[Rfam]
RNA sequence: AAAUAAACCUUAUUGAAAUGGAAAUAUUUUGUCAAGCUGAGCGUAGUCGAAGCUCAAAAUAUUGGAAUGGAAAGAAGGACUACAU
Number, nucleotide and partner (000 for none) at each position: 001a000002a000003a000004u000005a000006a000007a000008c000009c077010u076011u075012a000013u073014u072015g000016a000017a000018a068019u067020g000021g000022a000023a063024a062025u061026a060027u000028u058029u057030u056031g055032u000033c000034a000035a000036g053037c052038u051039g000040a000041g000042c000043g000044u000045a000046g000047u000048c000049g000050a000051a038052g037053c036054u000055c031056a030057a029058a028059a000060u026061a025062u024063u023064g000065g000066a000067a019068u018069g000070g000071a000072a014073a013074g000075a011076a010077g009078g000079a000080c000081u000082a000083c000084a000085u000

A member of the RNA family "Flavo-1 RNA" from Pedobacter planticolens, 85 nucleotides long. A search with the family's covariance model found it, with a score of 44 bits. The source organism's lineage runs through Bacteria, Pseudomonadati, Sphingobacteriia, Sphingobacteriaceae and Pedobacter.